RNA sequence: ACCACGAACACACCGCGGCGGGAGCGGGGGAACCAGGUAAGCGCCGCACCGUGCGUCACCGCACAGCGCGGCUUGGGGUGAAGCCGUCCACGCGCCCCGCGCGGGACGGCCGGGCAGCUCCAGCCCGAAUCCGACAGCUCACCUCGCAGGCGCAGGAGAGGAACAGA
Numbered sequence: 001a002c003c004a005c006g007a008a009c010a011c012a013c014c015g016c017g018g019c020g021g022g023a024g025c026g027g028g029g030g031a032a033c034c035a036g037g038u039a040a041g042c043g044c045c046g047c048a049c050c051g052u053g054c055g056u057c058a059c060c061g062c063a064c065a066g067c068g069c070g071g072c073u074u075g076g077g078g079u080g081a082a083g084c085c086g087u088c089c090a091c092g093c094g095c096c097c098c099g100c101g102c103g104g105g106a107c108g109g110c111c112g113g114g115c116a117g118c119u120c121c122a123g124c125c126c127g128a129a130u131c132c133g134a135c136a137g138c139u140c141a142c143c144u145c146g147c148a149g150g151c152g153c154a155g156g157a158g159a160g161g162a163a164c165a166g167a
Base pairs, nucleotide, nucleotide: 002022003021024147025146026145027144028143029142034075035074036073037072038071076132077131078130084109085108086107087106088105089104112126113125114124115123
RNA: c-di-AMP riboswitch aptamer (ydaO/yuaA leader)
Organism: Streptomyces sp. AJS327